The family of this 68-nucleotide RNA from Mola mola is "mir-33 microRNA precursor family". Rfam 15.1 lists 1,467 matches to the family in 815 species. A search with the family's covariance model found it, with a score of 73 bits. Lineage of the source: Eukaryota > Osteoglossocephalai > Euteleosteomorpha > Euacanthomorphacea > Mola. A reference for the family is Li et al. (2009), "Direct sequencing and expression analysis of a large number of miRNAs in Aedes aegypti and a multi-species survey of novel mosquito miRNAs", BMC Genomics.
RNA sequence: CUGUGGUGCAUUGUAGUUGCAUUGCAUGAUUUUGAACUCGAGUGCAAUGUGUCUGCAGUGCAGUACAG
Number, nucleotide and partner (000 for none) at each position: 001c068002u067003g066004u065005g000006g064007u062008g061009c060010a059011u058012u057013g056014u055015a054016g053017u000018u000019g050020c000021a048022u047023u046024g045025c044026a043027u042028g000029a000030u000031u000032u000033u000034g000035a000036a000037c000038u000039c000040g000041a000042g027043u026044g025045c024046a023047a022048u021049g000050u019051g000052u000053c016054u015055g014056c013057a012058g011059u010060g009061c008062a007063g000064u006065a004066c003067a002068g001